The family of this 67-nucleotide RNA is "int-alpA RNA". It is one of the family's seed sequences. By type it is a small RNA.

RNA sequence: AUUGAGCCUAGCUCGACGGGGCGAAAAGCGGGAAGCCUUACCGCCUGGCUCAAUCACAAAAUAAGGC
Numbered sequence: 001a002u003u004g005a006g007c008c009u010a011g012c013u014c015g016a017c018g019g020g021g022c023g024a025a026a027a028g029c030g031g032g033a034a035g036c037c038u039u040a041c042c043g044c045c046u047g048g049c050u051c052a053a054u055c056a057c058a059a060a061a062u063a064a065g066g067c
Stems, first nucleotide, its partner, number of pairs: 001054008011022004028044004035067006
Rfam 15.1 lists 577 matches to the family in 491 species. Acidobacteria (1 example), Planctomycetes (1 example), Proteobacteria.